A member of the RNA family "TPP riboswitch aptamer (THI element)" from Pyrinomonas methylaliphatogenes, 119 nucleotides long. The source organism's lineage runs through Bacteria, Pseudomonadati, Acidobacteriota, Blastocatellales and Pyrinomonas. Its family is annotated with thiamine pyrophosphate binding in the Gene Ontology.
[Rfam]
RNA sequence: CGAACCGAGCGGGGGAGCUUGCGUCUGGACGGAGGGCGCAGGCUGAGAGUCGCCCGAAGGCGAGACCCCUUGAACCUGAUACGGGUAAUGCCGUCGAAGGGAGCAAGAUGAAGCCGCUU
Numbered sequence: 001c002g003a004a005c006c007g008a009g010c011g012g013g014g015g016a017g018c019u020u021g022c023g024u025c026u027g028g029a030c031g032g033a034g035g036g037c038g039c040a041g042g043c044u045g046a047g048a049g050u051c052g053c054c055c056g057a058a059g060g061c062g063a064g065a066c067c068c069c070u071u072g073a074a075c076c077u078g079a080u081a082c083g084g085g086u087a088a089u090g091c092c093g094u095c096g097a098a099g100g101g102a103g104c105a106a107g108a109u110g111a112a113g114c115c116g117c118u119u
Stems, first nucleotide, its partner, number of pairs: 006107001009104002011069004017043010050063005075100003081094004
Dot-bracket structure: .....(..((((((..((((((((((.......))))))))))......(((((....)))))..)))).....(((...((((......))))...)))..))..)............